[Rfam]
RNA: Small nucleolar RNA snoR2/U65
RNA sequence: GGCCUAAUGCCACGUCUCCGGUAGCUACGAGCUUUGAUCGGUGAUGCUUUGAUUAGGCCAAGACAGAUUUCUUUUGAUGUUUCACAUUUUGAUAGGAACCUGUGACUGCAUCUCUAUCGGUCUACAGAGCCGGUUUAUGUGAUUAUAUUU
Numbered sequence: 001g002g003c004c005u006a007a008u009g010c011c012a013c014g015u016c017u018c019c020g021g022u023a024g025c026u027a028c029g030a031g032c033u034u035u036g037a038u039c040g041g042u043g044a045u046g047c048u049u050u051g052a053u054u055a056g057g058c059c060a061a062g063a064c065a066g067a068u069u070u071c072u073u074u075u076g077a078u079g080u081u082u083c084a085c086a087u088u089u090u091g092a093u094a095g096g097a098a099c100c101u102g103u104g105a106c107u108g109c110a111u112c113u114c115u116a117u118c119g120g121u122c123u124a125c126a127g128a129g130c131c132g133g134u135u136u137a138u139g140u141g142a143u144u145a146u147a148u149u150u
Stems, first nucleotide, its partner, number of pairs: 002058007009050001013046004018041001020039003024032003082142005095131002100127003104122004